[Rfam]
RNA sequence: GGUCAAUGAUGAAUAGUAAAAGGUCUGAAUGCACAGGAAAUGCACUUCCAUUACCCUCCUAGCUCCCAACAGUCUCCCUUUAUCCCGUCACACUCUAGUAGUGCUGUGAUGGAGGAGGUACUGCUGACAGCUUGGGGUAAGCUCAGUUCUAGGUCUCCACAGUGUAAGGAGACAUGGUACUGAAUGUCAUCCAACAGAACCACUUAAAAGGAGCUGAGGGUUUGGAGCGUCUUGAUUGGCUGUGCAUGAUCUCAAGUUUUCAAGCUGAGACC
Numbered sequence: 001g002g003u004c005a006a007u008g009a010u011g012a013a014u015a016g017u018a019a020a021a022g023g024u025c026u027g028a029a030u031g032c033a034c035a036g037g038a039a040a041u042g043c044a045c046u047u048c049c050a051u052u053a054c055c056c057u058c059c060u061a062g063c064u065c066c067c068a069a070c071a072g073u074c075u076c077c078c079u080u081u082a083u084c085c086c087g088u089c090a091c092a093c094u095c096u097a098g099u100a101g102u103g104c105u106g107u108g109a110u111g112g113a114g115g116a117g118g119u120a121c122u123g124c125u126g127a128c129a130g131c132u133u134g135g136g137g138u139a140a141g142c143u144c145a146g147u148u149c150u151a152g153g154u155c156u157c158c159a160c161a162g163u164g165u166a167a168g169g170a171g172a173c174a175u176g177g178u179a180c181u182g183a184a185u186g187u188c189a190u191c192c193a194a195c196a197g198a199a200c201c202a203c204u205u206a207a208a209a210g211g212a213g214c215u216g217a218g219g220g221u222u223u224g225g226a227g228c229g230u231c232u233u234g235a236u237u238g239g240c241u242g243u244g245c246a247u248g249a250u251c252u253c254a255a256g257u258u259u260u261c262a263a264g265c266u267g268a269g270a271c272c
Stems, first nucleotide, its partner, number of pairs: 001272004037253002040250002046227005063213004067126002070123004085112008093103001134192001136191003140187001149177003153173006
RNA: Small Cajal body specific RNA 6